[Rfam]
RNA: Small nucleolar RNA snoR27
RNA sequence: UUGGGGACAUCUAUGAUGCCCUAUUAAACAGUGUUAUCUAUCUGCAAUUUCUUACAAUGUCUUGAAGAAGAAUUGUAACAAACUGAGACCCCAA
Dot-bracket structure: ((((((..................................................................................))))))